[Rfam]
A member of the RNA family "Ruegeria cis52 sRNA" from Tropicimonas sediminicola, 179 nucleotides long. Taxonomically the source falls in Tropicimonas (Bacteria, Pseudomonadati, Pseudomonadota, Rhodobacterales).
RNA sequence: UUCGCAGCGCGUGUUUCAGGACGAUGUUCGGGAAGCUCACGCCCUUGAGGCGCGCGGUGCGGAUAUAUUGCGCGGUCAUCACCUCUGUCAUCGAGGCCCGCGUCAUCCGGGCGAUGUACCCCAUGCCGUAGAGCGCGAUGGUCACGACCGGCAGGGUGAAGUUCUCGAAGGUGAUGCCG
Number, nucleotide and partner (000 for none) at each position: 001u000002u000003c000004g000005c140006a139007g000008c137009g136010c135011g134012u133013g000014u131015u130016u128017c000018a000019g126020g000021a124022c000023g000024a000025u000026g000027u000028u123029c000030g121031g120032g000033a000034a000035g000036c000037u000038c113039a000040c111041g000042c109043c000044c000045u000046u105047g104048a103049g000050g101051c100052g099053c000054g097055c075056g000057g073058u072059g071060c070061g069062g068063a000064u000065a000066u000067a000068u062069u061070g060071c059072g058073c057074g000075g055076u000077c000078a000079u000080c000081a000082c096083c095084u094085c093086u000087g000088u000089c000090a000091u000092c000093g085094a084095g083096g082097c054098c000099c052100g051101c050102g000103u048104c047105a046106u000107c000108c000109g042110g000111g040112c000113g038114a000115u000116g000117u000118a000119c000120c031121c030122c000123a028124u021125g000126c019127c000128g016129u000130a015131g014132a000133g012134c011135g010136c009137g008138a000139u006140g005141g000142u000143c000144a000145c179146g178147a000148c000149c000150g000151g172152c171153a000154g165155g164156g163157u000158g000159a000160a000161g000162u000163u156164c155165u154166c000167g000168a000169a000170g000171g152172u151173g000174a000175u000176g000177c000178c146179g145
Pairs were carried over by alignment from the consensus structure, which was predicted with RNAfold. A reference for the family is Rivers et al. (2016), "Experimental Identification of Small Non-Coding RNAs in the Model Marine Bacterium Ruegeria pomeroyi DSS-3", Front Microbiol. Gene Ontology term of the family: regulation of gene expression.